[Rfam]
RNA sequence: CUGCUGUGAUGGGAACAUUUUUCGUCAACAGCAUUUCACGCAGUGAAUGGUGACACGUGACUUCUGAGCAG
Numbered sequence: 001c002u003g004c005u006g007u008g009a010u011g012g013g014a015a016c017a018u019u020u021u022u023c024g025u026c027a028a029c030a031g032c033a034u035u036u037c038a039c040g041c042a043g044u045g046a047a048u049g050g051u052g053a054c055a056c057g058u059g060a061c062u063u064c065u066g067a068g069c070a071g
Stems, first nucleotide, its partner, number of pairs: 002070003008026004

Rfam assigns this 71-nucleotide RNA from Alligator sinensis to the family "Small nucleolar RNA SNORD56". For this family Rfam cites "Purified box C/D snoRNPs are able to reproduce site-specific 2'-O-methylation of target RNA in vitro" (Galardi et al., Mol Cell Biol, 2002). NCBI's taxonomy places the organism under Eukaryota, Eumetazoa, Chordata, Archosauria, Alligator.